[Rfam]
RNA sequence: UGGCGCAGUGGUGAUGGAUCUCGCCCGAGCUCGGGUCGCUCGAACCGCCAACCGGCUGAUAGUUCCUACCGUCAU
Numbered sequence: 001u002g003g004c005g006c007a008g009u010g011g012u013g014a015u016g017g018a019u020c021u022c023g024c025c026c027g028a029g030c031u032c033g034g035g036u037c038g039c040u041c042g043a044a045c046c047g048c049c050a051a052c053c054g055g056c057u058g059a060u061a062g063u064u065c066c067u068a069c070c071g072u073c074a075u
Stems, first nucleotide, its partner, number of pairs: 010025004016066003020062002047056003
Dot-bracket structure: .........((((..[[[.[[)))).....................(((....)))....]].]]].........

This 75-nucleotide RNA sequence from Mycolicibacterium rhodesiae belongs to the Rfam family "Fluoride riboswitch aptamer (crcB RNA motif)". The organism belongs to Mycolicibacterium rhodesiae, within Bacteria. Pairs were carried over by alignment from the consensus structure, which is taken from published work. It scores 37 bits against the family's covariance model.